The record is a 114-nucleotide RNA from Pediculus humanus, which matches "Potassium channel RNA editing signal" in Rfam.
From the family's description: This family represents a group of sequences related to the human potassium channel Kv1.1 hairpin element which directs the efficient modification of an adenosine to inosine by an adenosine deaminase acting on RNA (ADAR). The ADAR modification causes an isoleucine/valine recoding event which lies in the ion-conducting pore of the potassium channel. It is thought that this editing event targets the process of fast inactivation and allows a more rapid recovery from inactivation at negative potentials.
The base pairs follow the family's consensus structure, which is taken from published work.
The family's RNA type in Rfam is cis-regulatory element.
RNA sequence: GUCGGCUACGGUGACAUAUGUCCGACGACCGCGUUAGGGAAAGUUAUCGGGAGCGUUUGUUGCAUUUGUGGCGUUUUGGUCAUCGCUCUGCCCAUUCCAAUUAUUGUUAAUAAU
Numbered sequence: 001g002u003c004g005g006c007u008a009c010g011g012u013g014a015c016a017u018a019u020g021u022c023c024g025a026c027g028a029c030c031g032c033g034u035u036a037g038g039g040a041a042a043g044u045u046a047u048c049g050g051g052a053g054c055g056u057u058u059g060u061u062g063c064a065u066u067u068g069u070g071g072c073g074u075u076u077u078g079g080u081c082a083u084c085g086c087u088c089u090g091c092c093c094a095u096u097c098c099a100a101u102u103a104u105u106g107u108u109a110a111u112a113a114u
Stems, first nucleotide, its partner, number of pairs: 001114002004111001008107004013102002020095002037077004049063001051061001

Gene Ontology term of the family: adenosine to inosine editing.